[Rfam]
RNA sequence: CUGUGAAUAUUCUGGCUCUUCGGAGUUGAUAAUAAUCAAGCAGGCUAAACAUAAGCUACAUAAAAACCACGCCUGGGCCUGGAGGCCUAGUUCUUAGCCUGGGUUUGAUUUAAUACAUGCUGCUGAUAAAC
Numbered sequence: 001c002u003g004u005g006a007a008u009a010u011u012c013u014g015g016c017u018c019u020u021c022g023g024a025g026u027u028g029a030u031a032a033u034a035a036u037c038a039a040g041c042a043g044g045c046u047a048a049a050c051a052u053a054a055g056c057u058a059c060a061u062a063a064a065a066a067c068c069a070c071g072c073c074u075g076g077g078c079c080u081g082g083a084g085g086c087c088u089a090g091u092u093c094u095u096a097g098c099c100u101g102g103g104u105u106u107g108a109u110u111u112a113a114u115a116c117a118u119g120c121u122g123c124u125g126a127u128a129a130a131c
Stems, first nucleotide, its partner, number of pairs: 003056002016043002019040002023037002026034001066124001068122002071120002083106008
Rfam assigns this 131-nucleotide RNA from Otolemur garnettii to the family "Small nucleolar RNA SNORA72".
U72 is a member of the H/ACA class of snoRNAs. The snoRNA gene is located in intron 4 of the ribosomal L30 protein gene in human, mouse and chicken.
A reference for the family is Ganot et al. (1997), "The family of box ACA small nucleolar RNAs is defined by an evolutionarily conserved secondary structure and ubiquitous sequence elements essential for RNA accumulation", Genes Dev.
The family's RNA type in Rfam is H/ACA-box small nucleolar RNA.
NCBI's taxonomy places the organism under Eukaryota, Gnathostomata, Amniota, Eutheria, Otolemur.
Rfam links the family to the GO terms RNA processing and nucleolus.